[Rfam]
RNA: 6S / SsrS RNA
RNA sequence: GUUUCCCUGCCUAGUGCGCCAAGGUCAUAUAUUCCUUGAACCAAUGUCACAUUGGCACGGUUGCGGAACCUUGUAACACGGGCGCGCGCGUCACUCUGUCUGAUGUACCCGAAGUGUUGCUUACCGCGACCAAUCUUGAACCCAGGUUCAGGAUGCCGGCCUAGCGGCUGAGGCGGGGACCUU
Numbered sequence: 001g002u003u004u005c006c007c008u009g010c011c012u013a014g015u016g017c018g019c020c021a022a023g024g025u026c027a028u029a030u031a032u033u034c035c036u037u038g039a040a041c042c043a044a045u046g047u048c049a050c051a052u053u054g055g056c057a058c059g060g061u062u063g064c065g066g067a068a069c070c071u072u073g074u075a076a077c078a079c080g081g082g083c084g085c086g087c088g089c090g091u092c093a094c095u096c097u098g099u100c101u102g103a104u105g106u107a108c109c110c111g112a113a114g115u116g117u118u119g120c121u122u123a124c125c126g127c128g129a130c131c132a133a134u135c136u137u138g139a140a141c142c143c144a145g146g147u148u149c150a151g152g153a154u155g156c157c158g159g160c161c162u163a164g165c166g167g168c169u170g171a172g173g174c175g176g177g178g179a180c181c182u183u
Stems, first nucleotide, its partner, number of pairs: 004179008012170004017166003033153003037150006059131003063127004068122001073120007084108001